[Rfam]
Nucleotides: 083
Stems, first nucleotide, its partner, number of pairs: 001082007010025003027043005059075005
Number, partner (000 for none) and nucleotide at each position: 001082g002081c003080c004079c005078a006077a007076g008000u009000g010025g011024c012023g013000g014000a015000a016000u017000g018000g019000u020000a021000g022000a023012c024011g025010c026000a027043g028042g029041g030040g031039a032000u033000u034000c035000a036000a037000a038000a039031u040030c041029c042028c043027c044000c045000g046000a047000u048000g049000g050000c051000a052000a053000c054000a055000u056000c057000g058000u059075g060074u061073g062072a063071g064000u065000u066000c067000g068000a069000a070000u071063c072062u073061c074060a075059c076007c077006u078005u079004g080003g081002g082001c083000a

The record is an 83-nucleotide RNA sequence from Roseovarius gahaiensis, which matches "tRNA" in Rfam. Lineage of the source: Bacteria > Pseudomonadota > Alphaproteobacteria > Roseobacteraceae > Roseovarius. The family's RNA type in Rfam is transfer RNA. A search with the family's covariance model found it, with a score of 59 bits.